RNA sequence: CCGUGCGCGUCCUCCGAGCCACGGUGCCUAAGUCCUGCGUGGAUACGGCGCCGCGGCCGUGGCCUUCGGGCCACCAGGGUCGGCGCGGAAACGCACCGGCCUCCCGUUCUGGAAAGGAAGAAAAAUGACUUUGCU
Numbered sequence: 001c002c003g004u005g006c007g008c009g010u011c012c013u014c015c016g017a018g019c020c021a022c023g024g025u026g027c028c029u030a031a032g033u034c035c036u037g038c039g040u041g042g043a044u045a046c047g048g049c050g051c052c053g054c055g056g057c058c059g060u061g062g063c064c065u066u067c068g069g070g071c072c073a074c075c076a077g078g079g080u081c082g083g084c085g086c087g088g089a090a091a092c093g094c095a096c097c098g099g100c101c102u103c104c105c106g107u108u109c110u111g112g113a114a115a116g117g118a119a120g121a122a123a124a125a126u127g128a129c130u131u132u133g134c135u
Base pairs, nucleotide, nucleotide: 005126010121011120013118014117015116018057019056020055022053023052024051025050026049027048028047032044033043034042035041059074060073061072062071063070077102078101079100080099081098082097083096085094086093087092103112104111
Molybdenum/Tungsten riboswitch aptamer (Moco RNA motif): a 135-nucleotide RNA sequence from Rehaibacterium terrae. Lineage of the source: Bacteria > Pseudomonadati > Lysobacterales > Lysobacteraceae > Rehaibacterium.